[Rfam]
RNA sequence: UAAAAGGGUCGGCUGGCUAAAUGUGCCACGCUCACCCUCGCAUUGGUGAGUGCUGUAUGGCUAUCAAGACAUAUGGCCGACAUAAUUUGUGGAAUCCCUUAUAGGGUUGGCUCGCUUUUGGCCGACCCUCCA
Numbered sequence: 001u002a003a004a005a006g007g008g009u010c011g012g013c014u015g016g017c018u019a020a021a022u023g024u025g026c027c028a029c030g031c032u033c034a035c036c037c038u039c040g041c042a043u044u045g046g047u048g049a050g051u052g053c054u055g056u057a058u059g060g061c062u063a064u065c066a067a068g069a070c071a072u073a074u075g076g077c078c079g080a081c082a083u084a085a086u087u088u089g090u091g092g093a094a095u096c097c098c099u100u101a102u103a104g105g106g107u108u109g110g111c112u113c114g115c116u117u118u119u120g121g122c123c124g125a126c127c128c129u130c131c132a
Stems, first nucleotide, its partner, number of pairs: 008081005014028004029052008053076007103129008112121003